[Rfam]
Rfam assigns this 192-nucleotide RNA sequence from Thermoflavimicrobium daqui to the family "Lysine riboswitch aptamer".
Its family is annotated with lysine biosynthetic process in the Gene Ontology.
NCBI's taxonomy places the organism under Bacteria, Bacillati, Caryophanales, Thermoactinomycetaceae, Thermoflavimicrobium.
RNA sequence: CGAUGAAGUAGAGGAGCGACUUUUAUUAGUACUCAAAUAGGAGAUAUAGAGAAAUCGUUGAUGAUUUGAUGAAAGGAAAAGUCGCCGAAGUCUUUCUAGCUUUCUCUAGGCUAGAGGAUUGGGGCUAUAUCCGAAUAGGGUAUAGAACUGUCACGAUGAUUUUCGAAGUAAUCGUGGAGCGCUAUUUCAAUG
Numbered sequence: 001c002g003a004u005g006a007a008g009u010a011g012a013g014g015a016g017c018g019a020c021u022u023u024u025a026u027u028a029g030u031a032c033u034c035a036a037a038u039a040g041g042a043g044a045u046a047u048a049g050a051g052a053a054a055u056c057g058u059u060g061a062u063g064a065u066u067u068g069a070u071g072a073a074a075g076g077a078a079a080a081g082u083c084g085c086c087g088a089a090g091u092c093u094u095u096c097u098a099g100c101u102u103u104c105u106c107u108a109g110g111c112u113a114g115a116g117g118a119u120u121g122g123g124g125c126u127a128u129a130u131c132c133g134a135a136u137a138g139g140g141u142a143u144a145g146a147a148c149u150g151u152c153a154c155g156a157u158g159a160u161u162u163u164c165g166a167a168g169u170a171a172u173c174g175u176g177g178a179g180c181g182c183u184a185u186u187u188c189a190a191u192g
Base pairs, nucleotide, nucleotide: 006187007186008185009184010183011182016085017084018083019082020081021080022079023078024077033069034068035067036066037065038064040062089120090119091118092117093116094115096114097113098112099111100110101109121149122148125145126144127143128142129141130140131139151177152176153175154174155173156172157171